[Rfam]
RNA: U12 minor spliceosomal RNA
Organism: Molossus molossus
RNA sequence: AAGCCUUAAACUUAUGAGUAAGGAAAAUAACGAUUCGGGGUCAUGCCCGAAUCCUCACUGUGAUGCCCCAAUACUCACUGCUAAUGUGAGACAAAUUUUUGUGUGGGUAAAUGUUGCCCCUAAGGUGACCCACCUACUUUGUGGGAUGCCUGGGAGUUGUGAUCUGCCCG
Numbered sequence: 001a002a003g004c005c006u007u008a009a010a011c012u013u014a015u016g017a018g019u020a021a022g023g024a025a026a027a028u029a030a031c032g033a034u035u036c037g038g039g040g041u042c043a044u045g046c047c048c049g050a051a052u053c054c055u056c057a058c059u060g061u062g063a064u065g066c067c068c069c070a071a072u073a074c075u076c077a078c079u080g081c082u083a084a085u086g087u088g089a090g091a092c093a094a095a096u097u098u099u100u101g102u103g104u105g106g107g108u109a110a111a112u113g114u115u116g117c118c119c120c121u122a123a124g125g126u127g128a129c130c131c132a133c134c135u136a137c138u139u140u141g142u143g144g145g146a147u148g149c150c151u152g153g154g155a156g157u158u159g160u161g162a163u164c165u166g167c168c169c170g
Stems, first nucleotide, its partner, number of pairs: 004023005032053008054090005104170005111165001113163005120154002123151005129145005